Rfam assigns this 115-nucleotide sequence from Glutamicibacter creatinolyticus to the family "SAM (S-adenosyl methionine) riboswitch aptamer". Rfam 15.1 lists 2,360 matches to the family in 1,305 species. SAM-IV is a mRNA element that regulates gene expression via direct sensing of S-adenosylmethionine (SAM or AdoMet). SAM-IV riboswitches share conserved nucleotide positions with the previously described SAM-I riboswitches sequence analysis and molecular recognition experiments suggest that SAM-I and SAM-IV riboswitches share similar ligand binding sites, but have different scaffolds.
RNA sequence: CUUCACGAGAUGCGGCGCCAAGCUCCGACUGGCCGCACACCAACCCCAGGUUCAUGGGUGGUUCGGAUGAGGAAGCGGUCCGCGGCACCAGCUUGUGCCCGGGCAAGAGCUAGCC
Numbered sequence: 001c002u003u004c005a006c007g008a009g010a011u012g013c014g015g016c017g018c019c020a021a022g023c024u025c026c027g028a029c030u031g032g033c034c035g036c037a038c039a040c041c042a043a044c045c046c047c048a049g050g051u052u053c054a055u056g057g058g059u060g061g062u063u064c065g066g067a068u069g070a071g072g073a074a075g076c077g078g079u080c081c082g083c084g085g086c087a088c089c090a091g092c093u094u095g096u097g098c099c100c101g102g103g104c105a106a107g108a109g110c111u112a113g114c115c
Base pairs, nucleotide, nucleotide: 001075002074003073004072009038011037012036013035014034015033016032021030022029039062040061041060044058045057046056078104079103080102081101082100084099085098086097087096088095